A member of the RNA family "Alphaproteobacterial sRNA ar7" from Mesorhizobium sp. L-8-10, 141 nucleotides long.
On this family, see del Val et al., RNA Biol 2012: "A survey of sRNA families in alpha-proteobacteria".

RNA sequence: CAUCGGCAGUUUUUGCCGAGUCCGGAUCGAAGGCCCGUCCCCCGCCUAGGCCGGACAGUGCGGCAGCCUCAUCCCCCUCUCCGGGCUGCCGCAUCGUUUCAUAGAUGCCGCCGUGGUUUCCCUCCACCACGGCGGCACUUU
Numbered sequence: 001c002a003u004c005g006g007c008a009g010u011u012u013u014u015g016c017c018g019a020g021u022c023c024g025g026a027u028c029g030a031a032g033g034c035c036c037g038u039c040c041c042c043c044g045c046c047u048a049g050g051c052c053g054g055a056c057a058g059u060g061c062g063g064c065a066g067c068c069u070c071a072u073c074c075c076c077c078u079c080u081c082c083g084g085g086c087u088g089c090c091g092c093a094u095c096g097u098u099u100c101a102u103a104g105a106u107g108c109c110g111c112c113g114u115g116g117u118u119u120c121c122c123u124c125c126a127c128c129a130c131g132g133c134g135g136c137a138c139u140u141u
Base pairs, nucleotide, nucleotide: 022054023053024052025051027050028049032046033045034044058094059093060092061091062090063089064088065087066086067085068084106137108135109134110133111132112131113130114129115128116127117126
Lineage of the source: Bacteria > Pseudomonadati > Hyphomicrobiales > Phyllobacteriaceae > Mesorhizobium. Rfam classes the family as a small RNA. The base pairs follow the family's consensus structure.